[Rfam]
Description:
The family of this 80-nucleotide sequence is "RAGATH-18 RNA". By type it is a small RNA. Rfam's curators write: Actinobacteria, Firmicutes, Fusobacteria, Thermotogae (1 example).
RNA sequence: CUUGUGGACUGUUAUAUCAAAUGAGAGUAGUUUUUAUGCUGUGAGUGUAAAGGGCGAAAUCAGGCAGGUUGAAGCAAGAA
Numbered sequence: 001c002u003u004g005u006g007g008a009c010u011g012u013u014a015u016a017u018c019a020a021a022u023g024a025g026a027g028u029a030g031u032u033u034u035u036a037u038g039c040u041g042u043g044a045g046u047g048u049a050a051a052g053g054g055c056g057a058a059a060u061c062a063g064g065c066a067g068g069u070u071g072a073a074g075c076a077a078g079a080a
Stems, first nucleotide, its partner, number of pairs: 001078005009067005022062003030055003034050006